[Rfam]
RNA sequence: GGAGAAGCAAAGUGAUGAGCAUUACUAGCUGGAGCCCCAAAGAGGCACGUGUGUGUGUGCGUGUGUGUGUGUGUGUGUAUCCUCGUCUGGGAGUGUGAGUGUGUGUGACUCGUUAUAGGGAACUAGUUAUGUGCCUUCUGUUGGACCAUGACAGUCAAACUGAUAAGAUCUGAUUGCUUC
Numbered sequence: 001g002g003a004g005a006a007g008c009a010a011a012g013u014g015a016u017g018a019g020c021a022u023u024a025c026u027a028g029c030u031g032g033a034g035c036c037c038c039a040a041a042g043a044g045g046c047a048c049g050u051g052u053g054u055g056u057g058u059g060c061g062u063g064u065g066u067g068u069g070u071g072u073g074u075g076u077g078u079a080u081c082c083u084c085g086u087c088u089g090g091g092a093g094u095g096u097g098a099g100u101g102u103g104u105g106u107g108a109c110u111c112g113u114u115a116u117a118g119g120g121a122a123c124u125a126g127u128u129a130u131g132u133g134c135c136u137u138c139u140g141u142u143g144g145a146c147c148a149u150g151a152c153a154g155u156c157a158a159a160c161u162g163a164u165a166a167g168a169u170c171u172g173a174u175u176g177c178u179u180c
Stems, first nucleotide, its partner, number of pairs: 004180007014170003026157001028155004036091004041086001045082001047080001049078004057070005093106004109126002112123003128150004133146001135144002

Small nucleolar RNA ZL1: a 180-nucleotide sequence from Leptonychotes weddellii. The family has 5 seed sequences and 300 matches in Rfam 15.1. By type it is a C/D-box small nucleolar RNA. About the family: Host gene TRRAP. Predicted target U2@U47. Only GU-rich region is homologous to other known snoRNAs. Conserved in vertebrates. Pairs were carried over by alignment from the consensus structure, which was predicted with RNAfold. For this family Rfam cites "Insights into snoRNA biogenesis and processing from PAR-CLIP of snoRNA core proteins and small RNA sequencing" (Kishore et al., Genome Biol, 2013). The organism belongs to Leptonychotes, within Eukaryota. Gene Ontology terms of the family: RNA processing and nucleolus. It scores 154 bits against the family's covariance model.